RNA: mir-105 microRNA precursor family
RNA sequence: UGUGCAUCGGGUUCAAAUGCUCAGACUCCUGUAGUGGCUGCUCAUGCACCAUGGAUGCUUGCGCAUGUGCUGUGCUGUUUA
Numbered sequence: 001u002g003u004g005c006a007u008c009g010g011g012u013u014c015a016a017a018u019g020c021u022c023a024g025a026c027u028c029c030u031g032u033a034g035u036g037g038c039u040g041c042u043c044a045u046g047c048a049c050c051a052u053g054g055a056u057g058c059u060u061g062c063g064c065a066u067g068u069g070c071u072g073u074g075c076u077g078u079u080u081a
Base pairs, nucleotide, nucleotide: 004078005077006076008074009073011071014069015068017066018065019064020063022061023060024059026057027055028054029053034052035051036050037049039048040047041046